Rfam assigns this 150-nucleotide RNA from Bacillus sp. 165 to the family "Manganese Mn2+ riboswitch aptamer (yybP-ykoY)". This RNA was originally discovered in E. coli during a large scale screen and was named SraF. The family was later found to exist upstream of related families of protein genes in many bacteria, including the the yybP and ykoK genes in B. subtilis. A search with the family's covariance model found it, with a score of 47 bits. On this family, see Dambach et al., Mol Cell 2015: "The ubiquitous yybP-ykoY riboswitch is a manganese-responsive regulatory element".

RNA sequence: AUCAUAUUCAAAGGGGAGUAGCGUCAGGGAUACCUGCCCUGAAACAAAGUCGUCAUUUCAUGGAUUCUCUCCAUCGGCUUUGUUGACAUACUGUUUACAUAUGUCUAGCAAGACCUUUGCCUAUCAGCGGCAAAGGUCUUUUUAAUGUCC
Number, nucleotide and partner (000 for none) at each position: 001a000002u000003c000004a000005u000006a000007u000008u000009c000010a000011a000012a000013g000014g000015g000016g000017a000018g000019u000020a000021g000022c000023g000024u000025c041026a040027g039028g000029g000030a000031u000032a000033c000034c000035u000036g000037c000038c000039c027040u026041g025042a000043a084044a083045c082046a081047a080048a079049g078050u077051c076052g075053u000054c000055a000056u000057u000058u000059c000060a074061u073062g072063g071064a070065u000066u000067c000068u000069c000070u064071c063072c062073a061074u060075c052076g051077g050078c049079u048080u047081u046082g045083u044084u043085g000086a000087c000088a000089u000090a000091c000092u000093g000094u000095u000096u000097a000098c000099a000100u000101a000102u000103g000104u000105c000106u000107a000108g000109c000110a000111a000112g000113a000114c000115c000116u000117u000118u000119g000120c000121c000122u000123a000124u000125c000126a000127g000128c000129g000130g000131c000132a000133a000134a000135g000136g000137u000138c000139u000140u000141u000142u000143u000144a000145a000146u000147g000148u000149c000150c000